[Rfam]
A member of the RNA family "nhaA-II RNA", 78 nucleotides long. The base pairs follow the family's consensus structure, which is taken from published work. It is annotated as a cis-regulatory element.
RNA sequence: AUCAGGCCGGUUCGCCCGGCCAGGCCGGCGCCGAUCAGGCGAAUCCGGUCCGGCGCCCGUCGAUAACCUGGUGCCACG
Numbered sequence: 001a002u003c004a005g006g007c008c009g010g011u012u013c014g015c016c017c018g019g020c021c022a023g024g025c026c027g028g029c030g031c032c033g034a035u036c037a038g039g040c041g042a043a044u045c046c047g048g049u050c051c052g053g054c055g056c057c058c059g060u061c062g063a064u065a066a067c068c069u070g071g072u073g074c075c076a077c078g
Base pairs, nucleotide, nucleotide: 005021006020007019008018009016010015023050024049025048026047027046028045029041030040031039032038052075053074054073055072056071057070